Source information:
tRNA: a 73-nucleotide RNA from Elusimicrobium minutum. The family's RNA type in Rfam is transfer RNA.

RNA sequence: GGGCGUGUAGCUCAGUUGGGAGAGCGCUUCGUUCGCAACGAAGAGGUCGUGGGUUCGACUCCCAUCACGUCCA
Numbered sequence: 001g002g003g004c005g006u007g008u009a010g011c012u013c014a015g016u017u018g019g020g021a022g023a024g025c026g027c028u029u030c031g032u033u034c035g036c037a038a039c040g041a042a043g044a045g046g047u048c049g050u051g052g053g054u055u056c057g058a059c060u061c062c063c064a065u066c067a068c069g070u071c072c073a
Stems, first nucleotide, its partner, number of pairs: 001072007010025004027043005049065005